[Rfam]
RNA sequence: CGCUGGGCCACCCGCUCCCACCGGCGGGCGCUCAUCUGAAAGGAUGGGAGUA
Numbered sequence: 001c002g003c004u005g006g007g008c009c010a011c012c013c014g015c016u017c018c019c020a021c022c023g024g025c026g027g028g029c030g031c032u033c034a035u036c037u038g039a040a041a042g043g044a045u046g047g048g049a050g051u052a
Stems, first nucleotide, its partner, number of pairs: 011028006032047006

This 52-nucleotide RNA from Alphaproteobacteria bacterium PA3 belongs to the Rfam family "serC leader".
It is annotated as a cis-regulatory leader.
The base pairs follow the family's consensus structure.
The match comes from Rfam's covariance-model search (47 bits).
Gene Ontology term of the family: regulation of gene expression.
This family is a putative regulatory RNA structure that is found upstream of the serC-serA operon in some alpha-proteobacteria.